[Rfam]
RNA sequence: CGGAAAGUAGCUUAGCUUGGUAGAGCACUCGGUUUGGGACCGAGGGGUCGCAGGUUCGAAUCCUGUCUUUCCGA
Dot-bracket structure: (((((((..((((.........)))).(((((.......))))).....(((((.......)))))))))))).

The record is a 74-nucleotide RNA from Spiroplasma melliferum, which matches "tRNA" in Rfam. The organism belongs to Spiroplasma, within Bacteria. Its family is annotated with triplet codon-amino acid adaptor activity in the Gene Ontology. It is annotated as a transfer RNA.